RNA sequence: GAGCAUGAUAGAGGCGCGGUCGCCAUCAGUAGCUUAGUAAAACGCCGGGAAGCGUUAAGCGAAAGGGGCCUCCGCCGAAGAGCCGAUCAUUUUCCCGAAUGGCCGGUGUCUGGGACGCAGGAGAAUAUCCUGCGGACUGUCGCAAAUGCGGAGAGCUGUCAUGAUC
Numbered sequence: 001g002a003g004c005a006u007g008a009u010a011g012a013g014g015c016g017c018g019g020u021c022g023c024c025a026u027c028a029g030u031a032g033c034u035u036a037g038u039a040a041a042a043c044g045c046c047g048g049g050a051a052g053c054g055u056u057a058a059g060c061g062a063a064a065g066g067g068g069c070c071u072c073c074g075c076c077g078a079a080g081a082g083c084c085g086a087u088c089a090u091u092u093u094c095c096c097g098a099a100u101g102g103c104c105g106g107u108g109u110c111u112g113g114g115a116c117g118c119a120g121g122a123g124a125a126u127a128u129c130c131u132g133c134g135g136a137c138u139g140u141c142g143c144a145a146a147u148g149c150g151g152a153g154a155g156c157u158g159u160c161a162u163g164a165u166c
Base pairs, nucleotide, nucleotide: 006161007160008159009158010157011156016075017074018073019072022069023068024067032060033059034058035057036056037055038054079111080110081109082107083106084105085104087102088101089100090099112138113137116134117133118132119131120130121129122128140151141150142149143148

Lysine riboswitch aptamer: a 166-nucleotide RNA from Firmicutes bacterium CAG:555.
The match comes from Rfam's covariance-model search (83 bits).